A member of the RNA family "Bacterial RNase P class A" from Tepidamorphus gemmatus, 379 nucleotides long. A search with the family's covariance model found it, with a score of 284 bits. Taxonomically the source falls in Tepidamorphus (Bacteria, Pseudomonadati, Alphaproteobacteria, Tepidamorphaceae). Rfam classes the family as a ribozyme.
Nucleotides: 379
Stems, first nucleotide, its partner, number of pairs: 001375010011364001012325007020033005038362003042359005047217004056259001060213005065079005080094001081092004095208002100206002102202003117148002119144003124137001126135002156174006175197001176195003181190003221282004231273006251266004289308008
Number, partner (000 for none) and nucleotide at each position: 001375c002374c003373a004372g005371u006370c007369g008368g009367c010366c011364g012325g013324a014323c015322g016321g017320c018319c019000g020033c021032u022031g023030c024029c025000c026000u027000c028000g029024g030023g031022c032021a033020g034000a035000g036000g037000a038362a039361a040360g041000u042359c043358c044357g045356g046355g047217c048216u049215c050214c051000a052000c053000g054000g055000a056259g057000a058000c059000a060213c061212g062211g063210u064209g065079c066078c067077g068076g069075g070000u071000a072000a073000c074000g075069c076068c077067c078066g079065g080094c081092g082091g083090g084089g085000g086000c087000g088000a089084c090083c091082c092081c093000a094080g095208g096207g097000a098000a099000a100206g101205u102202g103201c104200c105000a106000c107000a108000g109000a110000g111000a112000g113000c114000a115000g116000a117148c118147c119144g120143c121142c122000c123000c124137g125000g126135u127134c128000c129000u130000g131000c132000a133000u134127g135126g136000g137124c138000c139000g140000g141000c142121g143120g144119c145000a146000a147118g148117g149000g150000u151000g152000a153000a154000a155000g156174g157173g158172u159171g160170c161169g162000g163000u164000a165000a166000g167000a168000g169161c170160g171159c172158a173157c174156c175197g176195c177194g178193c179000g180000a181190c182189c183188g184000g185000c186000a187000a188183c189182g190181g191000g192000a193178g194177c195176g196000g197175c198000a199000c200104g201103g202102c203000a204000a205101a206100c207096c208095c209064c210063a211062c212061c213060g214050g215049g216048a217047g218000c219000a220000a221282g222281a223280c224279c225000g226000a227000a228000u229000a230000g231273g232272g233271a234270c235269g236268g237000c238000a239000c240000g241000g242000g243000u244000u245000c246000g247000c248000c249000c250000a251266g252265g253264c254263g255000g256000g257000u258000c259056u260000c261000c262000g263254c264253g265252c266251c267000g268236c269235c270234g271233u272232c273231c274000g275000g276000g277000u278000u279224g280223g281222u282221u283000g284000c285000a286000c287000g288000a289308g290307g291306c292305g293304u294303c295302c296301g297000g298000c299000a300000a301296c302295g303294g304293g305292c306291g307290u308289c309000c310000c311000a312000g313000a314000u315000g316000a317000a318000u319018g320017g321016c322015c323014g324013u325012c326000a327000c328000g329000c330000g331000g332000g333000g334000c335000u336000u337000c338000g339000c340000c341000u342000c343000c344000g345000c346000c347000a348000u349000a350000c351000a352000g353000a354000a355046c356045c357044c358043g359042g360040c361039u362038u363000a364011c365000a366010g367009g368008c369007c370006g371005g372004c373003u374002g375001g376000c377000a378000c379000c